[Rfam]
RNA sequence: UUUCGGUACGCUUGAACUUUGUUUUUCCUGUGUAAUUGACUAGGUGAGCAAAGAUUCAGGUGUGUUGGAUA
Number, nucleotide and partner (000 for none) at each position: 001u000002u069003u068004c067005g066006g065007u064008a000009c062010g061011c060012u059013u058014g057015a056016a000017c053018u052019u051020u050021g000022u048023u047024u046025u000026u000027c044028c043029u042030g000031u000032g000033u000034a000035a000036u000037u000038g000039a000040c000041u000042a029043g028044g027045u000046g024047a023048g022049c000050a020051a019052a018053g017054a000055u000056u015057c014058a013059g012060g011061u010062g009063u000064g007065u006066u005067g004068g003069a002070u000071a000
RNA: mir-87 microRNA precursor family
Organism: Acanthoscelides obtectus